[Rfam]
RNA sequence: CCGCCGCGUCAUCUGGGGAGUAGCCAGCCGUCGCUUGCGACGGGCCGCCGCGUCAACAUACUUGGCCGAGAGGUCAUGGUGCGGUGGAAGCGGGAUCACCGCUU
Numbered sequence: 001c002c003g004c005c006g007c008g009u010c011a012u013c014u015g016g017g018g019a020g021u022a023g024c025c026a027g028c029c030g031u032c033g034c035u036u037g038c039g040a041c042g043g044g045c046c047g048c049c050g051c052g053u054c055a056a057c058a059u060a061c062u063u064g065g066c067c068g069a070g071a072g073g074u075c076a077u078g079g080u081g082c083g084g085u086g087g088a089a090g091c092g093g094g095a096u097c098a099c100c101g102c103u104u
Base pairs, nucleotide, nucleotide: 028043029042030041045086048084049083050082051081052080053079054078055077063076064075065074066073067072088104089103090102091101092100093099
Dot-bracket structure: ...........................(((..........))).(..((((((((.......(((((....))))))))))))).).((((((.....))))))
Manganese Mn2+ riboswitch aptamer (yybP-ykoY): a 104-nucleotide RNA sequence from Sphingopyxis alaskensis. Pairs were carried over by alignment from the consensus structure. This RNA was originally discovered in E. coli during a large scale screen and was named SraF. The family was later found to exist upstream of related families of protein genes in many bacteria, including the the yybP and ykoK genes in B. subtilis.